The record is a 75-nucleotide sequence from Pediculus humanus, which matches "let-7 microRNA precursor family" in Rfam. Gene Ontology terms of the family: RISC complex and miRNA-mediated post-transcriptional gene silencing. Lineage of the source: Eukaryota > Ecdysozoa > Pancrustacea > Pediculus > Pediculus humanus. This family represents the microRNAs (miRNA) let-7 and mir-98. let-7 was identified from a study of developmental timing in C. elegans, and was later shown to be part of a much larger class of non-coding RNAs termed miRNAs. Rfam's curators put it in the seed alignment. Pairs were carried over by alignment from the consensus structure, which was predicted with RNAalifold. The literature on the family includes a 2001 paper in Nat Rev Genet by Rougvie, "Control of developmental timing in animals". The family has 64 seed sequences and 8,694 matches in Rfam 15.1.
[Rfam]
RNA sequence: CAGGGUGAGGUAGUAGACUGUAUAGUAAAGAAUUACAUCAUUUGGAGGUACUGUACAAUCUGCUAACUUUCCCUG
Numbered sequence: 001c002a003g004g005g006u007g008a009g010g011u012a013g014u015a016g017a018c019u020g021u022a023u024a025g026u027a028a029a030g031a032a033u034u035a036c037a038u039c040a041u042u043u044g045g046a047g048g049u050a051c052u053g054u055a056c057a058a059u060c061u062g063c064u065a066a067c068u069u070u071c072c073c074u075g
Stems, first nucleotide, its partner, number of pairs: 001075005007069003011065007019057008028038001030036001041046001